SAM riboswitch aptamer (S box leader): a 115-nucleotide RNA. Gene Ontology term of the family: regulation of gene expression. The SAM riboswitch is found upstream of a number of genes which code for proteins involved in methionine or cysteine biosynthesis in Gram-positive bacteria. The family is grouped with related families in Rfam's "SAM clan".
[Rfam]
Nucleotides: 115
Stems, first nucleotide, its partner, number of pairs: 003113006013043005021032003026103004044095004049091002052086007099107001
Number, partner (000 for none) and nucleotide at each position: 001000u002000a003113u004112c005111u006110a007109u008108c009000c010000a011000g012000a013043g014042u015041g016040a017039c018000u019000g020000a021032g022031a023030g024000a025000c026103c027102u028101g029100g030023c031022u032021c033000g034000a035000c036000g037000a038000c039017g040016u041015c042014a043013c044095a045094g046093c047092a048000a049091c050090c051000a052086c053085c054084g055083u056082g057081a058080g059000a060000c061000g062000a063000a064000u065000u066000a067000c068000u069000c070000u071000c072000g073000u074000c075000g076000c077000a078000u079000a080058u081057u082056c083055a084054c085053g086052g087000a088000a089000a090050g091049g092047u093046g094045c095044u096000c097000c098000c099107g100029c101028c102027a103026g104000g105000a106000c107099c108008g109007a110006u111005g112004g113003a114000g115000u